[Rfam]
RNA sequence: CAUGUCAGCACGCUUUGCUUACGUGGCAACAAAUCGCGUCUUCGUAAGCGCGCUUUGUGUCCACGUAAGCAAAGCGUGCCCCCAGGG
Numbered sequence: 001c002a003u004g005u006c007a008g009c010a011c012g013c014u015u016u017g018c019u020u021a022c023g024u025g026g027c028a029a030c031a032a033a034u035c036g037c038g039u040c041u042u043c044g045u046a047a048g049c050g051c052g053c054u055u056u057g058u059g060u061c062c063a064c065g066u067a068a069g070c071a072a073a074g075c076g077u078g079c080c081c082c083c084a085g086g087g
Stems, first nucleotide, its partner, number of pairs: 001086001003084002008079014023064004029058005035052004041046001

MIR7486 microRNA precursor family: an 87-nucleotide RNA sequence from Gossypium harknessii. It scores 68 bits against the family's covariance model.